Source information:
A member of the RNA family "mir-160 microRNA precursor family", 88 nucleotides long. On this family, see Rhoades et al., Cell 2002: "Prediction of plant microRNA targets".
RNA sequence: UUAUGCCUGGCUCCUUGUAUGCCAUUUGCAGAGUACAUCCGAAGGCGGUGGUGGCCUUUGUGGAUGGCAUACCAGGAGCUAUGCAUGC
Numbered sequence: 001u002u003a004u005g006c007c008u009g010g011c012u013c014c015u016u017g018u019a020u021g022c023c024a025u026u027u028g029c030a031g032a033g034u035a036c037a038u039c040c041g042a043a044g045g046c047g048g049u050g051g052u053g054g055c056c057u058u059u060g061u062g063g064a065u066g067g068c069a070u071a072c073c074a075g076g077a078g079c080u081a082u083g084c085a086u087g088c
Stems, first nucleotide, its partner, number of pairs: 002087005008081007017072008027062003
Dot-bracket structure: .(((((.(((((((..((((((((..(((..............................)))..))))))))..))))))).))))).

Notes
Rfam 15.1 lists 1,502 matches to the family in 247 species. The match comes from Rfam's covariance-model search (58 bits).